[Rfam]
RNA sequence: GUUAUAAUGUUUGUAUCAAAGCGUAUAAUAGUUUUAAUAUGGUAAACAAGUUUCUACCUCACACCGUAAAUUGUGGGACUACGCGAAGACAACCAUCAUAA
Numbered sequence: 001g002u003u004a005u006a007a008u009g010u011u012u013g014u015a016u017c018a019a020a021g022c023g024u025a026u027a028a029u030a031g032u033u034u035u036a037a038u039a040u041g042g043u044a045a046a047c048a049a050g051u052u053u054c055u056a057c058c059u060c061a062c063a064c065c066g067u068a069a070a071u072u073g074u075g076g077g078a079c080u081a082c083g084c085g086a087a088g089a090c091a092a093c094c095a096u097c098a099u100a101a
Stems, first nucleotide, its partner, number of pairs: 021084005029049001031047004058077006
A member of the RNA family "Purine riboswitch aptamer" from Candidatus Izimoplasma sp. ZiA1, 101 nucleotides long.
It scores 63 bits against the family's covariance model.
The source organism's lineage runs through Bacteria, Bacillati, Mycoplasmatota, Mollicutes and Candidatus Izemoplasma.